[Rfam]
RNA: mir-29 microRNA precursor family
RNA sequence: AGGGUCUGGUCUCAAGUGGUGGGUAGAUAUAGUACAUUUUAGGGUCUAGCACCAUUUGAAAUCAGUGCUCU
Numbered sequence: 001a002g003g004g005u006c007u008g009g010u011c012u013c014a015a016g017u018g019g020u021g022g023g024u025a026g027a028u029a030u031a032g033u034a035c036a037u038u039u040u041a042g043g044g045u046c047u048a049g050c051a052c053c054a055u056u057u058g059a060a061a062u063c064a065g066u067g068c069u070c071u
Stems, first nucleotide, its partner, number of pairs: 001071004006065005012059003016055006024048004